Overview
This 88-nucleotide RNA from Araneus ventricosus belongs to the Rfam family "Vault RNA". Rfam's curators write: This family of RNAs are found as part of the enigmatic vault ribonucleoprotein complex. The base pairs follow the family's consensus structure, which is taken from published work. Rfam classes the family as a non-coding RNA gene.
[Rfam]
RNA sequence: CCGCAGGCUUAGUCUAGUGGUUACUUCGCAAUUCCAAGUCAACCUUGACAGCGGAUACGCUUGACCACGGGCGCCGUCCUGCAAUAUU
Numbered sequence: 001c002c003g004c005a006g007g008c009u010u011a012g013u014c015u016a017g018u019g020g021u022u023a024c025u026u027c028g029c030a031a032u033u034c035c036a037a038g039u040c041a042a043c044c045u046u047g048a049c050a051g052c053g054g055a056u057a058c059g060c061u062u063g064a065c066c067a068c069g070g071g072c073g074c075c076g077u078c079c080u081g082c083a084a085u086a087u088u
Stems, first nucleotide, its partner, number of pairs: 003082005012072004017068004026064003
Overview: Taxonomically the source falls in Araneus (Eukaryota, Metazoa, Arachnida, Entelegynae).